[Rfam]
RNA sequence: UUUUGGCGAUCUGGUUGUCUUUUUAUCCCUCCGCUCUCAGACGCUGCGCGGUUCAAAGAAACUUGACUUUGAGACCCUUCCAACCUACGUACUUCGCCAUCGAUAUUUGUUUGACGACCAGAGCUUCGGCGUCUUUCCAGACGCUCACGACGAUCUUUUCCUUCAAAUUCGACCCAAGUCCGCACUGCUUGCAGUGCAAAUACAAUUGCCAACGGAAGGAAAUCGUU
Numbered sequence: 001u002u003u004u005g006g007c008g009a010u011c012u013g014g015u016u017g018u019c020u021u022u023u024u025a026u027c028c029c030u031c032c033g034c035u036c037u038c039a040g041a042c043g044c045u046g047c048g049c050g051g052u053u054c055a056a057a058g059a060a061a062c063u064u065g066a067c068u069u070u071g072a073g074a075c076c077c078u079u080c081c082a083a084c085c086u087a088c089g090u091a092c093u094u095c096g097c098c099a100u101c102g103a104u105a106u107u108u109g110u111u112u113g114a115c116g117a118c119c120a121g122a123g124c125u126u127c128g129g130c131g132u133c134u135u136u137c138c139a140g141a142c143g144c145u146c147a148c149g150a151c152g153a154u155c156u157u158u159u160c161c162u163u164c165a166a167a168u169u170c171g172a173c174c175c176a177a178g179u180c181c182g183c184a185c186u187g188c189u190u191g192c193a194g195u196g197c198a199a200a201u202a203c204a205a206u207u208g209c210c211a212a213c214g215g216a217a218g219g220a221a222a223u224c225g226u227u
Stems, first nucleotide, its partner, number of pairs: 005125003010122010029040002043049002052073007087110003094103003128145007149227006158221007171180003182197006
RNA: C1_109596F 5' UTR thermometer
Organism: Agrobacterium sp. ATCC 31749